[Rfam]
RNA sequence: GGGCCUUGAUGUAACUGGCGACGAGUGGGUUUAACCACAGUGGAGCAUCAAGGUACACGGCCGGUCGCCUGGGCAAAGAGC
Dot-bracket structure: ..((((((((((..(.[[[[[...((((......))))...)..)))))))))).....(((..]]]]]..))).......

This 81-nucleotide RNA sequence from Paenibacillus sp. OAS669 belongs to the Rfam family "ZMP/ZTP riboswitch aptamer (pfl RNA motif)".